A member of the RNA family "FMN riboswitch aptamer (RFN element)" from Clostridium carboxidivorans, 119 nucleotides long. A search with the family's covariance model found it, with a score of 106 bits.
RNA sequence: AAAAGCUUUCAGGGCAGGGUGAAAUUCCCGAUCGGCGGUAAAGUCCGCGAGCUGAUAAUUCAGCAUGAACUGGUUAGAUUCCAGUACCGACAGUAAAGUCUGGAUAAAAGAAAGAAAGA
Numbered sequence: 001a002a003a004a005g006c007u008u009u010c011a012g013g014g015c016a017g018g019g020u021g022a023a024a025u026u027c028c029c030g031a032u033c034g035g036c037g038g039u040a041a042a043g044u045c046c047g048c049g050a051g052c053u054g055a056u057a058a059u060u061c062a063g064c065a066u067g068a069a070c071u072g073g074u075u076a077g078a079u080u081c082c083a084g085u086a087c088c089g090a091c092a093g094u095a096a097a098g099u100c101u102g103g104a105u106a107a108a109a110g111a112a113a114g115a116a117a118g119a
Base pairs, nucleotide, nucleotide: 006114007113008112009111010110017029018028019027031099032098033089034088035048036047037046038045043087044086053063069085070084071083072082073081091102092101093100

The family's consensus secondary structure is taken from published work.